RNA sequence: CUUCCCCUCCCUUACACCAGUCACUCUGUCCCCAGUGGAGUGGUCUGACAUUGACAGGGGAUACAGCACCACGGCUCUCUCACCUCUCAUCUAGGAUCUUCGUCUUACAUGGGGCUUGUGAGAGAGCUGACAAU
Numbered sequence: 001c002u003u004c005c006c007c008u009c010c011c012u013u014a015c016a017c018c019a020g021u022c023a024c025u026c027u028g029u030c031c032c033c034a035g036u037g038g039a040g041u042g043g044u045c046u047g048a049c050a051u052u053g054a055c056a057g058g059g060g061a062u063a064c065a066g067c068a069c070c071a072c073g074g075c076u077c078u079c080u081c082a083c084c085u086c087u088c089a090u091c092u093a094g095g096a097u098c099u100u101c102g103u104c105u106u107a108c109a110u111g112g113g114g115c116u117u118g119u120g121a122g123a124g125a126g127c128u129g130a131c132a133a134u
Base pairs, nucleotide, nucleotide: 003061004060005059006058007057008056011053018047019046020045022043023041024040025039026038027037073128074127075126077124078123086113087112088111089110090109092107093106094105095104

The family of this 134-nucleotide RNA sequence from Oncorhynchus kisutch is "Small nucleolar RNA SNORA49".
By type it is an H/ACA-box small nucleolar RNA.
Pairs were carried over by alignment from the consensus structure, which was predicted with RNAalifold.
Rfam describes the family as follows. The snoRNA ACA49 has no identified RNA target. NB genomic sequence 1-nt different from published.
Lineage of the source: Eukaryota > Vertebrata > Gnathostomata > Osteoglossocephalai > Oncorhynchus.